[Rfam]
RNA sequence: GGCCGUUCUCAGAUGACCCACCCUGGAAUUGGGAUCCCUCCUCUCUGGUUCCAGGGUGCAUCACCCAAGAACCACC
Numbered sequence: 001g002g003c004c005g006u007u008c009u010c011a012g013a014u015g016a017c018c019c020a021c022c023c024u025g026g027a028a029u030u031g032g033g034a035u036c037c038c039u040c041c042u043c044u045c046u047g048g049u050u051c052c053a054g055g056g057u058g059c060a061u062c063a064c065c066c067a068a069g070a071a072c073c074a075c076c
Stems, first nucleotide, its partner, number of pairs: 002075001005072005012065001014063003019058005025052009

Background
Shown here is a 76-nucleotide RNA from Myotis brandtii, a member of the family "mir-9223 microRNA precursor family". Lineage of the source: Eukaryota > Dipnotetrapodomorpha > Laurasiatheria > Vespertilionidae > Myotis. Rfam links the family to the GO terms miRNA-mediated post-transcriptional gene silencing and RISC complex.